RNA sequence: UUGCUCACAAAGUGGCUGUAAUAUGCUGAUGUAACGAUCAUAUCACAGCCAGCUUUGAUGAGCGUUG
Numbered sequence: 001u002u003g004c005u006c007a008c009a010a011a012g013u014g015g016c017u018g019u020a021a022u023a024u025g026c027u028g029a030u031g032u033a034a035c036g037a038u039c040a041u042a043u044c045a046c047a048g049c050c051a052g053c054u055u056u057g058a059u060g061a062g063c064g065u066u067g
Stems, first nucleotide, its partner, number of pairs: 005061003008057005013051007021043001024042002